RNA sequence: AAAGUAGAGGUAGGUGCGAGAAAUGACGGAACCUCACAAAUCAUCGUUCAUUGUCUCGCAGCUGCUUCAACUGUG
Numbered sequence: 001a002a003a004g005u006a007g008a009g010g011u012a013g014g015u016g017c018g019a020g021a022a023a024u025g026a027c028g029g030a031a032c033c034u035c036a037c038a039a040a041u042c043a044u045c046g047u048u049c050a051u052u053g054u055c056u057c058g059c060a061g062c063u064g065c066u067u068c069a070a071c072u073g074u075g
Stems, first nucleotide, its partner, number of pairs: 007068007015060002018057004022052005
A member of the RNA family "mir-241 microRNA precursor family" from Caenorhabditis remanei, 75 nucleotides long. The sequence is in the family's curated seed alignment. Its family is annotated with miRNA-mediated post-transcriptional gene silencing and RISC complex in the Gene Ontology. The family has 4 seed sequences and 9 matches in Rfam 15.1. Lineage of the source: Eukaryota > Ecdysozoa > Nematoda > Peloderinae > Caenorhabditis. The base pairs follow the family's consensus structure, which was predicted with RNAalifold.